[Rfam]
RNA sequence: ACCUGCAUUCAAAAGAGACCACGGGCUGUCUGUGCUCUGGUCGUUGACAAUGCAGGGAGAGAAGUUGUGGAAAGCAAUUUCCCGAGUUUGGAGGGUCCGCACCUGUCCCUUUCAAAUGCUGGCGCUUUCCCACA
Numbered sequence: 001a002c003c004u005g006c007a008u009u010c011a012a013a014a015g016a017g018a019c020c021a022c023g024g025g026c027u028g029u030c031u032g033u034g035c036u037c038u039g040g041u042c043g044u045u046g047a048c049a050a051u052g053c054a055g056g057g058a059g060a061g062a063a064g065u066u067g068u069g070g071a072a073a074g075c076a077a078u079u080u081c082c083c084g085a086g087u088u089u090g091g092a093g094g095g096u097c098c099g100c101a102c103c104u105g106u107c108c109c110u111u112u113c114a115a116a117u118g119c120u121g122g123c124g125c126u127u128u129c130c131c132a133c134a
Base pairs, nucleotide, nucleotide: 002056003055004054005053006052007051008050009049014045015044017042018041019040020039021038023037024036025035026034067131069130070129071128072127073126074125075124086117087116088115089114090113091111092110093109094108095107
Dot-bracket structure: .((((((((....((.(((((.((((.......))))))))).))...))))))))..........(.(((((((..........((((((((((...........))))).)))))......))))))))...